[Rfam]
RNA sequence: UGUAUCGUGAGGUGCAGGUGUGGAGCAAAACCGCGAGCCGACGAACAGAAACCAGAUAUGAGGCUGUCUGUGUGAGGACGAGUCAGCAUGUGAUGACGAAGUCCAUACUCAUCCGGACACUCAGGCAGUAGAUCUGGCGGUUGUGCGGCGAAGGCGGUGUGA
Numbered sequence: 001u002g003u004a005u006c007g008u009g010a011g012g013u014g015c016a017g018g019u020g021u022g023g024a025g026c027a028a029a030a031c032c033g034c035g036a037g038c039c040g041a042c043g044a045a046c047a048g049a050a051a052c053c054a055g056a057u058a059u060g061a062g063g064c065u066g067u068c069u070g071u072g073u074g075a076g077g078a079c080g081a082g083u084c085a086g087c088a089u090g091u092g093a094u095g096a097c098g099a100a101g102u103c104c105a106u107a108c109u110c111a112u113c114c115g116g117a118c119a120c121u122c123a124g125g126c127a128g129u130a131g132a133u134c135u136g137g138c139g140g141u142u143g144u145g146c147g148g149c150g151a152a153g154g155c156g157g158u159g160u161g162a
Base pairs, nucleotide, nucleotide: 001016002015003014004013005012006011019161020160021159022158025155026154031148032147033146034145035144036142037141038140039139040138052137053136054135055134056133057132063129064128065127067125068124069123070122072120073119076104077103078102079101082097083096084095085094
A member of the RNA family "Group II catalytic intron D1-D4-3" from Endozoicomonas numazuensis, 162 nucleotides long.
Group II introns are found in rRNA, tRNA and mRNA of organelles in fungi, plants and protists, and also in mRNA in bacteria.
Its family is annotated with Group II intron splicing in the Gene Ontology.
The base pairs follow the family's consensus structure.
A reference for the family is Bonen and Vogel (2001), "The ins and outs of group II introns", Trends Genet.